[Rfam]
RNA sequence: GGGAGUGGACGGAUCCUGGUGGAUCUCCUGGCCUUCAAAGCCAGCUGGCGGGCAGGAAAAAGUCCGCGGUAGGUUCGAUUCCUACCCACUCCC
Numbered sequence: 001g002g003g004a005g006u007g008g009a010c011g012g013a014u015c016c017u018g019g020u021g022g023a024u025c026u027c028c029u030g031g032c033c034u035u036c037a038a039a040g041c042c043a044g045c046u047g048g049c050g051g052g053c054a055g056g057a058a059a060a061a062g063u064c065c066g067c068g069g070u071a072g073g074u075u076c077g078a079u080u081c082c083u084a085c086c087c088a089c090u091c092c093c
Base pairs, nucleotide, nucleotide: 001093002092003091004090005089006088007087008086011026012025013024014023015022016021027047028044029043030042031041032040049066050065051064052063053062070084071083072082073081
Overview
Shown here is a 93-nucleotide sequence from Ammonifex degensii, a member of the family "Selenocysteine transfer RNA". The base pairs follow the family's consensus structure, which is taken from published work. It scores 77 bits against the family's covariance model. On this family, see Mizutani and Goto, FEBS Lett 2000: "Eukaryotic selenocysteine tRNA has the 9/4 secondary structure".